Notes
The record is an 81-nucleotide RNA from Mola mola, which matches "mir-219 microRNA precursor family" in Rfam. Rfam 15.1 lists 1,318 matches to the family in 774 species. A reference for the family is Lai et al. (2003), "Computational identification of Drosophila microRNA genes", Genome Biol. A search with the family's covariance model found it, with a score of 75 bits.
[Rfam]
RNA sequence: UUAGCGACUGAUUGUCCAAACGCAAUUCUUGCGUAAACUCGAAUUCAUCCCCAAGAAUUGUGUCUGGACAUCUGUUGCUGC
Numbered sequence: 001u002u003a004g005c006g007a008c009u010g011a012u013u014g015u016c017c018a019a020a021c022g023c024a025a026u027u028c029u030u031g032c033g034u035a036a037a038c039u040c041g042a043a044u045u046c047a048u049c050c051c052c053a054a055g056a057a058u059u060g061u062g063u064c065u066g067g068a069c070a071u072c073u074g075u076u077g078c079u080g081c
Base pairs, nucleotide, nucleotide: 002080003079004078005077006076007075010072011071012070014069015068016067017066018065021062022061023060024059025058026057027056028055029054030053031052